[Rfam]
RNA sequence: AUCAGGGCUAGGCCGACGGGCCGAAAAGGGAGGUGCCACCUUACUCCCCUGCCCUGAGUCAACAUAACGG
Number, nucleotide and partner (000 for none) at each position: 001a000002u057003c056004a055005g054006g053007g052008c051009u000010a000011g022012g021013c020014c019015g000016a000017c000018g000019g014020g013021c012022c011023g000024a000025a000026a000027a000028g048029g047030g046031a045032g044033g000034u000035g000036c000037c000038a000039c000040c070041u069042u000043a000044c032045u031046c030047c029048c028049c000050u000051g008052c007053c006054c005055u004056g003057a002058g000059u000060c000061a000062a000063c000064a000065u000066a000067a000068c000069g041070g040
Shown here is a 70-nucleotide RNA sequence from Flavonifractor phage Chenonceau, a member of the family "int-alpA RNA".
Acidobacteria (1 example), Planctomycetes (1 example), Proteobacteria.
Rfam 15.1 lists 577 matches to the family in 491 species.
By type it is a small RNA.